[Rfam]
RNA sequence: GUGCCCUUUUAAGUUACCACAGCACUUUAAGAGGCUAACCCAGAAGGGUAAAAGAAAUAAAUCUGCAUAAAACCCAGAGGAAAGAUGGCAAACUUCAUCUCUGGAUCCUGCCUGGAGUCAAAGUU
Numbered sequence: 001g002u003g004c005c006c007u008u009u010u011a012a013g014u015u016a017c018c019a020c021a022g023c024a025c026u027u028u029a030a031g032a033g034g035c036u037a038a039c040c041c042a043g044a045a046g047g048g049u050a051a052a053a054g055a056a057a058u059a060a061a062u063c064u065g066c067a068u069a070a071a072a073c074c075c076a077g078a079g080g081a082a083a084g085a086u087g088g089c090a091a092a093c094u095u096c097a098u099c100u101c102u103g104g105a106u107c108c109u110g111c112c113u114g115g116a117g118u119c120a121a122a123g124u125u
Stems, first nucleotide, its partner, number of pairs: 002050009013039004018034001020031001063117002066114002074104007083095002

The record is a 125-nucleotide RNA from Jaculus jaculus, which matches "Small nucleolar RNA SNORA26" in Rfam. Rfam's curators write: The snoRNA HBI-6 belong to the H/ACA family of snoRNAs, guiding the pseudouridylation of position U4522 if the 28S rRNA. HBI-6 is the human orthologue of mouse MBI-6 snoRNA. The family has 76 seed sequences and 1,943 matches in Rfam 15.1. A reference for the family is Huttenhofer et al. (2001), "RNomics: an experimental approach that identifies 201 candidates for novel, small, non-messenger RNAs in mouse", EMBO J. The family's RNA type in Rfam is H/ACA-box small nucleolar RNA. The base pairs follow the family's consensus structure, which was predicted with RNAalifold. Gene Ontology terms of the family: nucleolus and RNA processing. Its Rfam clan is "SNORA27 clan".